The family of this 100-nucleotide RNA sequence from Geomicrobium sp. JCM 19038 is "Purine riboswitch aptamer". It scores 79 bits against the family's covariance model. The organism belongs to Geomicrobium, within Bacteria. About the family: Riboswitches are metabolite binding domains within certain messenger RNAs that serve as precision sensors for their corresponding targets.
RNA sequence: AUACUUGAUAUACAAACCGCUCGUAUAAUCGCAAGGAUUGGCUUGCAAGUUUCUACCGGAAGACCGUAAUCUUCCGACUACGAGUGAAUGGUGAUGCAUA
Dot-bracket structure: .................((((((((...(.(((((......))))).)........(((((((......)))))))..))))))))..............